[Rfam]
Shown here is a 348-nucleotide sequence from Brevirhabdus pacifica, a member of the family "Alphaproteobacteria transfer-messenger RNA". It is annotated as a non-coding RNA gene. Pairs were carried over by alignment from the consensus structure, which is taken from published work.
RNA sequence: GCCCUUGCAACCGGGGCCACGGCGCUUAUAUUGGAACUGUCCUUCGGGACUAUGGACAUAAACGCGCUCGUAAUAAGCGGAUCGGACCCGGGGGCGGUACCCGGCGGCUCCACCAUAUAUCCUUCAUUUGGGGAUCUUGGGGCCGAAACAGGAUCGACGAACGUCUAAAGGGGUUUGCUUUGUCCCGGUGAGAUACCACCGUUAUCGGUUCACAUAAGCUAGUUGCAAAUGACAACAAAGCUCCGGUCGCGCUCGCAGCGUAAGCUGUGCGCAAGAUCGAAAUCUAAGCCCUUGCGCCUAGCAGCGUAAGGCGGGGUUCGCAGGCACCUGGCAACAGAAGCCUGCACU
Numbered sequence: 001g002c003c004c005u006u007g008c009a010a011c012c013g014g015g016g017c018c019a020c021g022g023c024g025c026u027u028a029u030a031u032u033g034g035a036a037c038u039g040u041c042c043u044u045c046g047g048g049a050c051u052a053u054g055g056a057c058a059u060a061a062a063c064g065c066g067c068u069c070g071u072a073a074u075a076a077g078c079g080g081a082u083c084g085g086a087c088c089c090g091g092g093g094g095c096g097g098u099a100c101c102c103g104g105c106g107g108c109u110c111c112a113c114c115a116u117a118u119a120u121c122c123u124u125c126a127u128u129u130g131g132g133g134a135u136c137u138u139g140g141g142g143c144c145g146a147a148a149c150a151g152g153a154u155c156g157a158c159g160a161a162c163g164u165c166u167a168a169a170g171g172g173g174u175u176u177g178c179u180u181u182g183u184c185c186c187g188g189u190g191a192g193a194u195a196c197c198a199c200c201g202u203u204a205u206c207g208g209u210u211c212a213c214a215u216a217a218g219c220u221a222g223u224u225g226c227a228a229a230u231g232a233c234a235a236c237a238a239a240g241c242u243c244c245g246g247u248c249g250c251g252c253u254c255g256c257a258g259c260g261u262a263a264g265c266u267g268u269g270c271g272c273a274a275g276a277u278c279g280a281a282a283u284c285u286a287a288g289c290c291c292u293u294g295c296g297c298c299u300a301g302c303a304g305c306g307u308a309a310g311g312c313g314g315g316g317u318u319c320g321c322a323g324g325c326a327c328c329u330g331g332c333a334a335c336a337g338a339a340g341c342c343u344g345c346a347c348u
Stems, first nucleotide, its partner, number of pairs: 039050004054185005064178002066174004078163002082160003088104005105145007186201004192211002195209003314329004320345006